RNA sequence: UUCCAUUGAUAAGCACUGGAGCAGCAGGAGCUGUGUAAAGGUCCAUUCUCCUGCGGCACUAGUACUUAGAAACGAAA
Numbered sequence: 001u002u003c004c005a006u007u008g009a010u011a012a013g014c015a016c017u018g019g020a021g022c023a024g025c026a027g028g029a030g031c032u033g034u035g036u037a038a039a040g041g042u043c044c045a046u047u048c049u050c051c052u053g054c055g056g057c058a059c060u061a062g063u064a065c066u067u068a069g070a071a072a073c074g075a076a077a
Stems, first nucleotide, its partner, number of pairs: 001077002004074001006072002010068004015063005024054007
A member of the RNA family "mir-252 microRNA precursor family" from Folsomia candida, 77 nucleotides long. Lineage of the source: Eukaryota > Metazoa > Ecdysozoa > Mandibulata > Folsomia. It scores 48 bits against the family's covariance model. Its Rfam clan is "mir-252 microRNA precursor family". The base pairs follow the family's consensus structure, which was predicted with RNAalifold. The literature on the family includes a 2009 paper in BMC Genomics by Li et al., "Direct sequencing and expression analysis of a large number of miRNAs in Aedes aegypti and a multi-species survey of novel mosquito miRNAs".